A member of the RNA family "mir-181 microRNA precursor family" from Podarcis muralis, 83 nucleotides long.
RNA sequence: GGGUCUCGUGGAACAUUCAACGCUGUCGGUGAGUUUUGUCACUGGGGUCAAACCAUCGACUGUUGAGUGUACCUUGUGGCCUG
Numbered sequence: 001g002g003g004u005c006u007c008g009u010g011g012a013a014c015a016u017u018c019a020a021c022g023c024u025g026u027c028g029g030u031g032a033g034u035u036u037u038g039u040c041a042c043u044g045g046g047g048u049c050a051a052a053c054c055a056u057c058g059a060c061u062g063u064u065g066a067g068u069g070u071a072c073c074u075u076g077u078g079g080c081c082u083g
Stems, first nucleotide, its partner, number of pairs: 002082002004079002007076002014069009025060007033053004
The literature on the family includes a 2001 paper in Cell by Ambros, "microRNAs: tiny regulators with great potential". The match comes from Rfam's covariance-model search (72 bits).